[Rfam]
The record is a 94-nucleotide sequence from Orthoflavivirus nilense, which matches "Flavivirus 3' UTR cis-acting replication element (CRE)" in Rfam. A reference for the family is Shi et al. (1996), "Evidence for the existence of a pseudoknot structure at the 3' terminus of the flavivirus genomic RNA", Biochemistry. The family's consensus secondary structure is taken from published work. About the family: This family represents the Flavivirus 3'-SL cis-acting replication element (CRE). The family is thought to play a crucial role in replication and is thought to be needed for the formation of a 'replication complex'. Although evidence has been presented for an existence of a pseudoknot structure in this RNA, it does not appear to be well conserved across flaviviruses.
RNA sequence: CUGGGAUAGACUAGGGGAUCUUCUGCUCUGCACAACCAGCCACACGGCACAGUGCGCCGAUAUAGGUGGCUGGUGGUGCUAGAACACAGGAUCU
Numbered sequence: 001c002u003g004g005g006a007u008a009g010a011c012u013a014g015g016g017g018a019u020c021u022u023c024u025g026c027u028c029u030g031c032a033c034a035a036c037c038a039g040c041c042a043c044a045c046g047g048c049a050c051a052g053u054g055c056g057c058c059g060a061u062a063u064a065g066g067u068g069g070c071u072g073g074u075g076g077u078g079c080u081a082g083a084a085c086a087c088a089g090g091a092u093c094u
Stems, first nucleotide, its partner, number of pairs: 001014004016094003020090003031078003035074004040069003046058003